Overview
Small nucleolar RNA Z103: a 95-nucleotide sequence from Beta vulgaris. For this family Rfam cites "The high diversity of snoRNAs in plants: identification and comparative study of 120 snoRNA genes from Oryza sativa" (Chen et al., Nucleic Acids Res, 2003). It is annotated as a C/D-box small nucleolar RNA. Lineage of the source: Eukaryota > eudicotyledons > Gunneridae > Betoideae > Beta vulgaris. The family's consensus secondary structure was predicted with PFOLD. Its family is annotated with nucleolus and RNA processing in the Gene Ontology.
RNA sequence: AUGGAAGUGAUGAUUAUUUCCCCAGAUGAUUGACGCUGAAAUUACUGAGCGCUAUUUAGUUCUCUUUGAGAAUUCAAGCCAGAAUUCUGAUCCAU
Numbered sequence: 001a002u003g004g005a006a007g008u009g010a011u012g013a014u015u016a017u018u019u020c021c022c023c024a025g026a027u028g029a030u031u032g033a034c035g036c037u038g039a040a041a042u043u044a045c046u047g048a049g050c051g052c053u054a055u056u057u058a059g060u061u062c063u064c065u066u067u068g069a070g071a072a073u074u075c076a077a078g079c080c081a082g083a084a085u086u087c088u089g090a091u092c093c094a095u
Stems, first nucleotide, its partner, number of pairs: 001095005